[Rfam]
Shown here is an 86-nucleotide RNA sequence from Hibiscus syriacus, a member of the family "Small nucleolar RNA Z159/U59". It scores 50 bits against the family's covariance model. Rfam links the family to the GO terms RNA processing and nucleolus. By type it is a C/D-box small nucleolar RNA.
RNA sequence: UACUCUGAUGAUGUUAACUGUAAAAAACUUUCGUUCUCCUGAGCUAAUAUAUGCUGAAAAUUUAUGGAGACCUGAGCUGAAGAGUU
Dot-bracket structure: ..((((..........................................................................))))..